[Rfam]
The family of this 60-nucleotide RNA is "GP20-b RNA". Rfam classes the family as a cis-regulatory element. Pairs were carried over by alignment from the consensus structure, which is taken from published work. It is one of the family's seed sequences.

RNA sequence: GGCUAUCCGCAAGCCUAAAAGUGCGGGGCGGUGGGUCACGGCAACGACCUAAAAAGCCUA
Number, nucleotide and partner (000 for none) at each position: 001g015002g014003c013004u012005a000006u000007c026008c025009g024010c023011a022012a004013g003014c002015c001016u000017a000018a000019a000020a000021g000022u011023g010024c009025g008026g007027g000028g000029c000030g000031g000032u000033g000034g049035g048036u047037c046038a000039c000040g000041g000042c000043a000044a000045c000046g037047a036048c035049c034050u000051a000052a000053a000054a000055a000056g000057c000058c000059u000060a000